[Rfam]
Nucleotides: 178
Stems, first nucleotide, its partner, number of pairs: 002165003007159001011155008020146002024141001030137006039109003051099006063086004112130007
Number, partner (000 for none) and nucleotide at each position: 001000u002165u003164g004163g005000c006000a007159g008000c009000a010000c011155u012154g013153g014152a015151g016150a017149c018148u019000a020146a021145a022000g023000u024141c025000c026000u027000g028000a029000c030137u031136u032135u033134a034133u035132c036000c037000a038000u039109c040108a041107g042000a043000c044000a045000g046000g047000u048000u049000c050000c051099g052098c053097a054096c055095g056094g057000g058000u059000a060000g061000c062000a063086g064085c065084a066083g067000u068000g069000c070000a071000a072000g073000a074000u075000u076000c077000u078000c079000c080000a081000c082000a083066c084065u085064g086063c087000c088000c089000u090000g091000c092000c093000a094056c095055u096054g097053u098052g099051c100000c101000u102000c103000a104000a105000c106000u107041c108040u109039g110000a111000c112130c113129u114128g115127g116126a117125g118124g119000g120000a121000c122000c123000a124118c125117c126116u127115c128114u129113a130112g131000g132035g133034g134033u135032g136031a137030g138000a139000g140000c141024g142000u143000a144000g145021u146020u147000c148018a149017g150016u151015c152014u153013c154012c155011a156000u157000g158000c159007u160000u161000c162000u163004c164003c165002a166000g167000u168000c169000c170000u171000g172000g173000g174000a175000u176000c177000c178000u

This 178-nucleotide RNA sequence from Centropus unirufus belongs to the Rfam family "TUC338". The base pairs follow the family's consensus structure, which was predicted with WAR. The source organism's lineage runs through Eukaryota, Craniata, Dipnotetrapodomorpha, Tetrapoda and Centropus. The match comes from Rfam's covariance-model search (132 bits). The literature on the family includes a 2011 paper in Proc Natl Acad Sci U S A by Braconi et al., "Expression and functional role of a transcribed noncoding RNA with an ultraconserved element in hepatocellular carcinoma".